[Rfam]
The family of this 136-nucleotide sequence from Eubucco bourcierii is "Small nucleolar RNA SNORA31". On this family, see Huttenhofer et al., EMBO J 2001: "RNomics: an experimental approach that identifies 201 candidates for novel, small, non-messenger RNAs in mouse". ACA31 (SNORA31) belongs to the H/ACA class of snoRNAs which are thought to guide the sites of modification of uridines to pseudouridines. The source organism's lineage runs through Eukaryota, Metazoa, Vertebrata, Neognathae and Eubucco. It is annotated as an H/ACA-box small nucleolar RNA. Rfam 15.1 lists 2,094 matches to the family in 626 species.
RNA sequence: GUGCAUCUGCUUGACAGACUUGGAGCAAAUGGCCAUUGCUUCUUGGGUUCUUGCUGAGAUGCAACAGUAACAGGUUCCUUGCGCUUUCUACCUGUCUGACCUUGUAGCAGUCUGGAUUGAAUAAAGGCACACACUC
Numbered sequence: 001g002u003g004c005a006u007c008u009g010c011u012u013g014a015c016a017g018a019c020u021u022g023g024a025g026c027a028a029a030u031g032g033c034c035a036u037u038g039c040u041u042c043u044u045g046g047g048u049u050c051u052u053g054c055u056g057a058g059a060u061g062c063a064a065c066a067g068u069a070a071c072a073g074g075u076u077c078c079u080u081g082c083g084c085u086u087u088c089u090a091c092c093u094g095u096c097u098g099a100c101c102u103u104g105u106a107g108c109a110g111u112c113u114g115g116a117u118u119g120a121a122u123a124a125a126g127g128c129a130c131a132c133a134c135u136c
Base pairs, nucleotide, nucleotide: 002063003062004061005060006059007058008057012053013052017049018048019047020046023041024040025039026038027037028036077127078126079125080124084119087116088115089114090113092110093109094108095107